[Rfam]
RNA sequence: UAUCGUAGCCCUUCUUGGGCGUUUCCUCCCUAAACUUCGGGCCGCUGGCAACAGUGGCCUUUUUUCUUGCCUGGU
Numbered sequence: 001u002a003u004c005g006u007a008g009c010c011c012u013u014c015u016u017g018g019g020c021g022u023u024u025c026c027u028c029c030c031u032a033a034a035c036u037u038c039g040g041g042c043c044g045c046u047g048g049c050a051a052c053a054g055u056g057g058c059c060u061u062u063u064u065u066c067u068u069g070c071c072u073g074g075u
Stems, first nucleotide, its partner, number of pairs: 008020004039060009